RNA sequence: GCACCCAAUCUUUCCCAUUCCUUACUGUGCAGUGUGGGCCUGGGGAUACGGGGUGCUAACAGAAACGCAGAGCAAAUCCAGACAGGUGCCUUCUUGCUUGCUGAAUACUUGUCCCUACACCUCUGCAACAGCU
Numbered sequence: 001g002c003a004c005c006c007a008a009u010c011u012u013u014c015c016c017a018u019u020c021c022u023u024a025c026u027g028u029g030c031a032g033u034g035u036g037g038g039c040c041u042g043g044g045g046a047u048a049c050g051g052g053g054u055g056c057u058a059a060c061a062g063a064a065a066c067g068c069a070g071a072g073c074a075a076a077u078c079c080a081g082a083c084a085g086g087u088g089c090c091u092u093c094u095u096g097c098u099u100g101c102u103g104a105a106u107a108c109u110u111g112u113c114c115c116u117a118c119a120c121c122u123c124u125g126c127a128a129c130a131g132c133u
Base pairs, nucleotide, nucleotide: 001056002055003054004053005052012046013045014044015043016042017041020038021037067126068125069124070123071122072121081113082112083111084110085109086108087107094105095104

Small nucleolar RNA SNORA55: a 133-nucleotide sequence from Upupa epops.
A search with the family's covariance model found it, with a score of 101 bits.
Taxonomically the source falls in Upupa (Eukaryota, Eumetazoa, Sauria, Neoaves).
The family has 29 seed sequences and 1,476 matches in Rfam 15.1.
ACA55 is a member of the H/ACA class of snoRNA that guide the sites of modification of uridines to pseudouridines.